[Rfam]
The record is a 61-nucleotide RNA from Ricinus communis, which matches "Plastid-psbA-4 3UTR RNA" in Rfam. It scores 58 bits against the family's covariance model. It is annotated as a cis-regulatory element. Rfam's curators write: Plastid psbA-4 is a non-coding RNA (ncRNA) present in plastids. It was identified in inverted repeat sequences in the 3 prime untranslate region (3UTR) of photosystem II quinone-binding protein (psbA). Taxonomically the source falls in Ricinus (Eukaryota, Embryophyta, Spermatophyta, Pentapetalae). The family's consensus secondary structure was predicted with LocARNA.
RNA sequence: AUAAAAAAUAAGCAAUAGCCAAUUUCUUGUUCCAUCGAGAGGGUUGGUAUUGCUCAUUUUU
Dot-bracket structure: .....((((.(((((((...(..((((((......))))))..)...))))))).))))..